[Rfam]
RNA sequence: UUCUUUCGGGUCUGUAGUUGCGGAAGCCCAAGGCUUCCAAGUCCAUGGCAGAUGCGGUCGAAAGGAUCCACGUAAGCGGCUGGCAUGCCAGACGUGAGCAUGGCGUAUCCUAGAGGUAAGACGCACCGUCCGCACCCAUUUCGCAGAUCAGACUCUGCGACGGACGAGAGGGCGUGUAGCGCAAGCGAAAACCCCGGUGCGCGAGUGUGGGGUCAAAGACUAGGUCAGUCGAAAGAG
Numbered sequence: 001u002u003c004u005u006u007c008g009g010g011u012c013u014g015u016a017g018u019u020g021c022g023g024a025a026g027c028c029c030a031a032g033g034c035u036u037c038c039a040a041g042u043c044c045a046u047g048g049c050a051g052a053u054g055c056g057g058u059c060g061a062a063a064g065g066a067u068c069c070a071c072g073u074a075a076g077c078g079g080c081u082g083g084c085a086u087g088c089c090a091g092a093c094g095u096g097a098g099c100a101u102g103g104c105g106u107a108u109c110c111u112a113g114a115g116g117u118a119a120g121a122c123g124c125a126c127c128g129u130c131c132g133c134a135c136c137c138a139u140u141u142c143g144c145a146g147a148u149c150a151g152a153c154u155c156u157g158c159g160a161c162g163g164a165c166g167a168g169a170g171g172g173c174g175u176g177u178a179g180c181g182c183a184a185g186c187g188a189a190a191a192c193c194c195c196g197g198u199g200c201g202c203g204a205g206u207g208u209g210g211g212g213u214c215a216a217a218g219a220c221u222a223g224g225u226c227a228g229u230c231g232a233a234a235g236a237g
Base pairs, nucleotide, nucleotide: 001237002236003235004234005233006232007231008230009229012228013227014226015222016221017220018219019218045208046207047206048058051109052108053107054106055105056104067103068102075095077094078093080091081090082089101215122201123200124199125198126197127166128165129164130163131162170194171193172192179186180185

Rfam assigns this 237-nucleotide RNA sequence from Adlercreutzia caecimuris to the family "raiA RNA". NCBI's taxonomy places the organism under Bacteria, Actinomycetota, Coriobacteriia, Adlercreutzia, Adlercreutzia caecimuris.